[Rfam]
RNA sequence: GGGGACCUCAGGGGCCCUAUACAUACAUAGGCGGGGCGCGUGUCUCGCCGCUCAGAAACGGAAGACAGAAA
Numbered sequence: 001g002g003g004g005a006c007c008u009c010a011g012g013g014g015c016c017c018u019a020u021a022c023a024u025a026c027a028u029a030g031g032c033g034g035g036g037c038g039c040g041u042g043u044c045u046c047g048c049c050g051c052u053c054a055g056a057a058a059c060g061g062a063a064g065a066c067a068g069a070a071a
Base pairs, nucleotide, nucleotide: 001018002017003016004015006014007013008012030049031048032047033046034045035044036043
RNA: L2-Alphaproteobacteria ribosomal protein leader